RNA sequence: UUUAUCGUGAGGUAAAGGCUGAAGGAAGCGUGUAUCAAAAUCUUGGCUCGACGGACAGAAAUCUGAUACGAAGGCUCUGUAGGCGGAUAAGGCUCCAUAACAAGUCAAAAUCCAAAAGAUGUGCGUAACCCUGCAGAGUAAAUUAGGCGAGUAAAAGAGGAAAGAUAGUUGU
Numbered sequence: 001u002u003u004a005u006c007g008u009g010a011g012g013u014a015a016a017g018g019c020u021g022a023a024g025g026a027a028g029c030g031u032g033u034a035u036c037a038a039a040a041u042c043u044u045g046g047c048u049c050g051a052c053g054g055a056c057a058g059a060a061a062u063c064u065g066a067u068a069c070g071a072a073g074g075c076u077c078u079g080u081a082g083g084c085g086g087a088u089a090a091g092g093c094u095c096c097a098u099a100a101c102a103a104g105u106c107a108a109a110a111u112c113c114a115a116a117a118g119a120u121g122u123g124c125g126u127a128a129c130c131c132u133g134c135a136g137a138g139u140a141a142a143u144u145a146g147g148c149g150a151g152u153a154a155a156a157g158a159g160g161a162a163a164g165a166u167a168g169u170u171g172u
Stems, first nucleotide, its partner, number of pairs: 001016006028172003035165002041158004046152005062147006074139003078135006085113004091106004
The family of this 172-nucleotide sequence from Oceanobacillus oncorhynchi is "Group II catalytic intron D1-D4-3". Pairs were carried over by alignment from the consensus structure. From the family's description: Group II introns are found in rRNA, tRNA and mRNA of organelles in fungi, plants and protists, and also in mRNA in bacteria. It scores 134 bits against the family's covariance model.